[Rfam]
RNA sequence: CAAUAUCAUUAGCCUAAGUAAAAAAACACGGGGGAACCAAGUUUUGGGGUGAAUCAUAUUUACUAUGAAGGUUAACCUUUACCUAAUCCGUCAGCUAACCCCGUCGGUAAAAGGAGCGAAAUA
Number, nucleotide and partner (000 for none) at each position: 001c000002a000003a000004u000005a000006u000007c000008a000009u000010u000011a000012g108013c107014c106015u000016a000017a000018g027019u026020a000021a000022a000023a000024a000025a000026a019027c018028a104029c103030g102031g101032g100033g099034g000035a000036a000037c000038c046039a045040a000041g000042u000043u000044u000045u039046g038047g089048g088049g087050u000051g000052a000053a000054u000055c067056a066057u065058a064059u000060u000061u000062a000063c000064u058065a057066u056067g055068a000069a000070g083071g082072u081073u000074a000075a000076c000077c000078u000079u000080u000081a072082c071083c070084u000085a000086a000087u049088c048089c047090g000091u000092c000093a000094g000095c000096u000097a000098a000099c033100c032101c031102c030103g029104u028105c000106g014107g013108u012109a000110a000111a000112a000113g000114g000115a000116g000117c000118g000119a000120a000121a000122u000123a000
RNA: c-di-AMP riboswitch aptamer (ydaO/yuaA leader)
Organism: Clostridium sp. HMP27